[Rfam]
RNA: Mammalian CPEB3 ribozyme
RNA sequence: GGCUGUGAGUUUGAGACUAUAGCAGAAAUGCUUAUGGCAUGGCCCUGUCAGAUUCUAGCGAGUCUGUGAAUUCUGUU
Numbered sequence: 001g002g003c004u005g006u007g008a009g010u011u012u013g014a015g016a017c018u019a020u021a022g023c024a025g026a027a028a029u030g031c032u033u034a035u036g037g038c039a040u041g042g043c044c045c046u047g048u049c050a051g052a053u054u055c056u057a058g059c060g061a062g063u064c065u066g067u068g069a070a071u072u073c074u075g076u077u
Stems, first nucleotide, its partner, number of pairs: 013045001015044001017042002021077007028040003049066007